[Rfam]
RNA sequence: AAUAAUCUUCAGGGCGAGGUGCAAUUCCUCACCGGUGGUAAAGUCCACUCGUCUUUUGACUGAAUCGGUGCAAUUCCGAUACCGACGGUAUAGUCCGGAUGAAAGAAGAUGUCU
Numbered sequence: 001a002a003u004a005a006u007c008u009u010c011a012g013g014g015c016g017a018g019g020u021g022c023a024a025u026u027c028c029u030c031a032c033c034g035g036u037g038g039u040a041a042a043g044u045c046c047a048c049u050c051g052u053c054u055u056u057u058g059a060c061u062g063a064a065u066c067g068g069u070g071c072a073a074u075u076c077c078g079a080u081a082c083c084g085a086c087g088g089u090a091u092a093g094u095c096c097g098g099a100u101g102a103a104a105g106a107a108g109a110u111g112u113c114u
Stems, first nucleotide, its partner, number of pairs: 005110006017029003031094002033084002035048004043082002051060003064080005086097003